[Rfam]
RNA sequence: AUUCCCUGGCAUUAGGCAGAGACACCUUGGUGGUGGUGGUGUUUUAUAUUAGUCAGGGGCAGAUAGCAGUCCUCUGUUCAUCCCAGCUUGCCUGACAUGGUGACCCAAGCUGUCUCAGGCAUAGGACUCACAA
Numbered sequence: 001a002u003u004c005c006c007u008g009g010c011a012u013u014a015g016g017c018a019g020a021g022a023c024a025c026c027u028u029g030g031u032g033g034u035g036g037u038g039g040u041g042u043u044u045u046a047u048a049u050u051a052g053u054c055a056g057g058g059g060c061a062g063a064u065a066g067c068a069g070u071c072c073u074c075u076g077u078u079c080a081u082c083c084c085a086g087c088u089u090g091c092c093u094g095a096c097a098u099g100g101u102g103a104c105c106c107a108a109g110c111u112g113u114c115u116c117a118g119g120c121a122u123a124g125g126a127c128u129c130a131c132a133a
Stems, first nucleotide, its partner, number of pairs: 003059006012052004019045002021040001023038004076127004090120006097113003101109001

The family of this 133-nucleotide sequence from Rattus norvegicus is "Small nucleolar RNA SNORA48".
Rfam 15.1 lists 2,109 matches to the family in 150 species.
By type it is an H/ACA-box small nucleolar RNA.
The organism belongs to Rattus, within Eukaryota.
Its family is annotated with nucleolus and RNA processing in the Gene Ontology.
It scores 51 bits against the family's covariance model.
The snoRNA ACA 48 has been identified to guide pseudouridylation of the residue U3797 in the 28S rRNA subunit.
The base pairs follow the family's consensus structure, which was predicted with RNAalifold.
Clan: SNORA48 clan.